[Rfam]
RNA sequence: CUUAAGGAUCGCUAGGGUUCCGGUCGGGCAGUGCGCCCGAUGGCUGGUCCGAGAGCAAUCCGGUCUCGUCUUCCUUCCUGCAAGGCGGCGAGGCUCCACGGAGGGAUAAAAGCCCGGGAGGU
Numbered sequence: 001c002u003u004a005a006g007g008a009u010c011g012c013u014a015g016g017g018u019u020c021c022g023g024u025c026g027g028g029c030a031g032u033g034c035g036c037c038c039g040a041u042g043g044c045u046g047g048u049c050c051g052a053g054a055g056c057a058a059u060c061c062g063g064u065c066u067c068g069u070c071u072u073c074c075u076u077c078c079u080g081c082a083a084g085g086c087g088g089c090g091a092g093g094c095u096c097c098a099c100g101g102a103g104g105g106a107u108a109a110a111a112g113c114c115c116g117g118g119a120g121g122u
Stems, first nucleotide, its partner, number of pairs: 007060003011056002015050002020047002022044001023041006062095008097117001099120001103115003
Dot-bracket structure: ......(((.((..((...(((((((((.......))))))..).)).))....)).))).((((((((..................)))))))).(.[...(((.......))).)..]..

Shown here is a 122-nucleotide RNA sequence from Paraburkholderia caballeronis, a member of the family "Guanidine-I riboswitch aptamer".
NCBI's taxonomy places the organism under Bacteria, Pseudomonadati, Betaproteobacteria, Burkholderiales, Paraburkholderia.
It scores 84 bits against the family's covariance model.
From the family's description: This family represents a conserved RNA structure found upstream of the ykkC and yxkD genes in Bacillus subtilis and related genes in other bacteria.